[Rfam]
RNA: Manganese Mn2+ riboswitch aptamer (yybP-ykoY)
RNA sequence: UGGAUCGUCAUUGGGGAGUAGCCUCCCUCGGCUUGAUCCGGGGGGGAUGCGUCAACAGACUUGAGCCGGCAUGGCUCAUGGCGCAUCCGGCAUCGGUCGCUUGGCGAGACCUUUGGCUUGGCGACCGACACCAGGGGGGUGGGCGGGGCGCAAAGCCAUUGGUUUACCGUCAGCCCAGCCCCC
Numbered sequence: 001u002g003g004a005u006c007g008u009c010a011u012u013g014g015g016g017a018g019u020a021g022c023c024u025c026c027c028u029c030g031g032c033u034u035g036a037u038c039c040g041g042g043g044g045g046g047a048u049g050c051g052u053c054a055a056c057a058g059a060c061u062u063g064a065g066c067c068g069g070c071a072u073g074g075c076u077c078a079u080g081g082c083g084c085a086u087c088c089g090g091c092a093u094c095g096g097u098c099g100c101u102u103g104g105c106g107a108g109a110c111c112u113u114u115g116g117c118u119u120g121g122c123g124a125c126c127g128a129c130a131c132c133a134g135g136g137g138g139g140u141g142g143g144c145g146g147g148g149c150g151c152a153a154a155g156c157c158a159u160u161g162g163u164u165u166a167c168c169g170u171c172a173g174c175c176c177a178g179c180c181c182c183c
Base pairs, nucleotide, nucleotide: 025043026042027041045088046087047086048085049084050083051082052081053080054079062078063077064076065075066074089183090182094178